[Rfam]
RNA: tRNA
Organism: Paludibaculum fermentans
RNA sequence: GCGGGAGUAACUCAAGGGUAGAGUCACAGCCUUCCAAGCUGUUGGUUGCGAGUUCGAGUCUCGUCUCCCGCU
Numbered sequence: 001g002c003g004g005g006a007g008u009a010a011c012u013c014a015a016g017g018g019u020a021g022a023g024u025c026a027c028a029g030c031c032u033u034c035c036a037a038g039c040u041g042u043u044g045g046u047u048g049c050g051a052g053u054u055c056g057a058g059u060c061u062c063g064u065c066u067c068c069c070g071c072u
Stems, first nucleotide, its partner, number of pairs: 001071007010024004026042005048064005